RNA sequence: GGAUAUAAACGCGCAUGUAAUACACGGAUCGGACCCGGGGGCGGUACCCGGCGACUCCACCAAACCUCCUUCAUUUGGGGAUCAUGGGGUCGAAACAGGAUCGACGAACGUCUAAAGAUGUUAGCUUUAUCUCGGUGAGUUACCACCGAUAUCGGUACAUUAUAGCUAGUUGCAAAUGACAACAAAGCUCCAAUGGCUCUGGCUGCGUAA
Numbered sequence: 001g002g003a004u005a006u007a008a009a010c011g012c013g014c015a016u017g018u019a020a021u022a023c024a025c026g027g028a029u030c031g032g033a034c035c036c037g038g039g040g041g042c043g044g045u046a047c048c049c050g051g052c053g054a055c056u057c058c059a060c061c062a063a064a065c066c067u068c069c070u071u072c073a074u075u076u077g078g079g080g081a082u083c084a085u086g087g088g089g090u091c092g093a094a095a096c097a098g099g100a101u102c103g104a105c106g107a108a109c110g111u112c113u114a115a116a117g118a119u120g121u122u123a124g125c126u127u128u129a130u131c132u133c134g135g136u137g138a139g140u141u142a143c144c145a146c147c148g149a150u151a152u153c154g155g156u157a158c159a160u161u162a163u164a165g166c167u168a169g170u171u172g173c174a175a176a177u178g179a180c181a182a183c184a185a186a187g188c189u190c191c192a193a194u195g196g197c198u199c200u201g202g203c204u205g206c207g208u209a210a
Stems, first nucleotide, its partner, number of pairs: 001132005013121004025110002029107003035051005052092007133148004
The family of this 210-nucleotide sequence from Marinosulfonomonas sp. PRT-SC04 is "permuted transfer-messenger RNA". Rfam classes the family as a non-coding RNA gene. A reference for the family is Williams and Bartel (1996), "Phylogenetic analysis of tmRNA secondary structure", RNA. Taxonomically the source falls in Marinosulfonomonas (Bacteria, Pseudomonadota, Alphaproteobacteria, Paracoccaceae).